[Rfam]
RNA sequence: AAAUUAUAAAAAGCGCCAGAGCUUAAGUAGAUUAAAAUUUUAUUUAAGUUGACGAGGAUAGGGAAUAUCGAAAUUUCGGCGGAUACCCUACGGUACUUUACACUAUCGAAAAAAAUUGGACAAAACUUAAAAGUAAUUUUAAGGACAAAACCAAUUGAGUGUAAAAU
Numbered sequence: 001a002a003a004u005u006a007u008a009a010a011a012a013g014c015g016c017c018a019g020a021g022c023u024u025a026a027g028u029a030g031a032u033u034a035a036a037a038u039u040u041u042a043u044u045u046a047a048g049u050u051g052a053c054g055a056g057g058a059u060a061g062g063g064a065a066u067a068u069c070g071a072a073a074u075u076u077c078g079g080c081g082g083a084u085a086c087c088c089u090a091c092g093g094u095a096c097u098u099u100a101c102a103c104u105a106u107c108g109a110a111a112a113a114a115a116u117u118g119g120a121c122a123a124a125a126c127u128u129a130a131a132a133g134u135a136a137u138u139u140u141a142a143g144g145a146c147a148a149a150a151c152c153a154a155u156u157g158a159g160u161g162u163a164a165a166a167u
Stems, first nucleotide, its partner, number of pairs: 020050008029041001059090005068079004091108005114156006126143007
RNA: glmS glucosamine-6-phosphate activated ribozyme aptamer